RNA sequence: UUUGGUAUUUUCUCUACCUAACACUAUUUACACAUGCAAAUUAGUAAUAAUUUGUGUGAAGCUGUAAAGACAAUGUAGCCUCUCUUAAAUGGGAAUGUUAAUAUAGAUACUUUUUAUAUAUUACCAGGAGCUAGUGUAAGUAA
Numbered sequence: 001u002u003u004g005g006u007a008u009u010u011u012c013u014c015u016a017c018c019u020a021a022c023a024c025u026a027u028u029u030a031c032a033c034a035u036g037c038a039a040a041u042u043a044g045u046a047a048u049a050a051u052u053u054g055u056g057u058g059a060a061g062c063u064g065u066a067a068a069g070a071c072a073a074u075g076u077a078g079c080c081u082c083u084c085u086u087a088a089a090u091g092g093g094a095a096u097g098u099u100a101a102u103a104u105a106g107a108u109a110c111u112u113u114u115u116a117u118a119u120a121u122u123a124c125c126a127g128g129a130g131c132u133a134g135u136g137u138a139a140g141u142a143a
Stems, first nucleotide, its partner, number of pairs: 002020001004018004028067005033058011081094004096116002102109002121139004
This 143-nucleotide RNA from Fusarium sp. NRRL 66182 belongs to the Rfam family "Group II catalytic intron D1-D4-7". The base pairs follow the family's consensus structure. On this family, see Bonen and Vogel, Trends Genet 2001: "The ins and outs of group II introns". Its family is annotated with Group II intron splicing in the Gene Ontology. Group II introns are found in rRNA, tRNA and mRNA of organelles in fungi, plants and protists, and also in mRNA in bacteria.